A member of the RNA family "U7 small nuclear RNA" from Geotrypetes seraphini, 71 nucleotides long. About the family: Animal histone pre-mRNAs are spliced by a different mechanism than nuclear pre-mRNAs and self-splicing introns. The match comes from Rfam's covariance-model search (35 bits).
[Rfam]
RNA sequence: GAUUUUUAGAGCUCCUUUAAAUUUUUCUAGGUGGGAUUCUUCUCUAAGAUGUGUAGGCAGAGAAUUCCAAA
Numbered sequence: 001g002a003u004u005u006u007u008a009g010a011g012c013u014c015c016u017u018u019a020a021a022u023u024u025u026u027c028u029a030g031g032u033g034g035g036a037u038u039c040u041u042c043u044c045u046a047a048g049a050u051g052u053g054u055a056g057g058c059a060g061a062g063a064a065u066u067c068c069a070a071a
Stems, first nucleotide, its partner, number of pairs: 033068008